[Rfam]
RNA: Small nucleolar RNA snoR77
Organism: Glycine max
RNA sequence: AGGCAGCCUUCUUGCCACUGUUAAAUGGCAUGAAAGGUGUUAAACUACUCGUAAAUUAAAUGCUUUUGCUCUUCAGACUCGCUGAGAUUUUCUGUGAAGCUUGUCUAGUAAGCUCAAGCACAUU
Numbered sequence: 001a002g003g004c005a006g007c008c009u010u011c012u013u014g015c016c017a018c019u020g021u022u023a024a025a026u027g028g029c030a031u032g033a034a035a036g037g038u039g040u041u042a043a044a045c046u047a048c049u050c051g052u053a054a055a056u057u058a059a060a061u062g063c064u065u066u067u068g069c070u071c072u073u074c075a076g077a078c079u080c081g082c083u084g085a086g087a088u089u090u091u092c093u094g095u096g097a098a099g100c101u102u103g104u105c106u107a108g109u110a111a112g113c114u115c116a117a118g119c120a121c122a123u124u
Stems, first nucleotide, its partner, number of pairs: 002041004007037002009034003013030005063118003068113003075106004081100003086092002